[Rfam]
RNA sequence: ACAUUUCGAAUGUGUGAUUUGUGGCAAUGGGAUUUGUACUUGAAUAUCCCCUUGUUGCAAACCCCACGUUUGAGGUGG
Numbered sequence: 001a002c003a004u005u006u007c008g009a010a011u012g013u014g015u016g017a018u019u020u021g022u023g024g025c026a027a028u029g030g031g032a033u034u035u036g037u038a039c040u041u042g043a044a045u046a047u048c049c050c051c052u053u054g055u056u057g058c059a060a061a062c063c064c065c066a067c068g069u070u071u072g073a074g075g076u077g078g
Stems, first nucleotide, its partner, number of pairs: 002077006009070006016063001018061010029050001031048003
This 78-nucleotide sequence from Hermetia illucens belongs to the Rfam family "mir-988 microRNA precursor family". The match comes from Rfam's covariance-model search (82 bits). The family's consensus secondary structure was predicted with RNAalifold. NCBI's taxonomy places the organism under Eukaryota, Eumetazoa, Allotriocarida, Eumetabola, Hermetia.